Source information:
The record is an 82-nucleotide RNA sequence from Caulobacter vibrioides, which matches "ZMP/ZTP riboswitch aptamer (pfl RNA motif)" in Rfam. A reference for the family is Jones et al. (2019), "Co-crystal structure of the Fusobacterium ulcerans ZTP riboswitch using an X-ray free-electron laser", Acta Crystallogr F Struct Biol Commun. Pairs were carried over by alignment from the consensus structure, which is taken from published work.

RNA sequence: CCGCGUUCGCGCGACUGGCGUUCGGAGGGAAAUGACCCUCGGGAAGCGUGGACUUUCAGAGCCGUUCGCCUGGGCGCCUAAC
Numbered sequence: 001c002c003g004c005g006u007u008c009g010c011g012c013g014a015c016u017g018g019c020g021u022u023c024g025g026a027g028g029g030a031a032a033u034g035a036c037c038c039u040c041g042g043g044a045a046g047c048g049u050g051g052a053c054u055u056u057c058a059g060a061g062c063c064g065u066u067c068g069c070c071u072g073g074g075c076g077c078c079u080a081a082c
Stems, first nucleotide, its partner, number of pairs: 003055001005053008015043002017070004025040004059077001061075003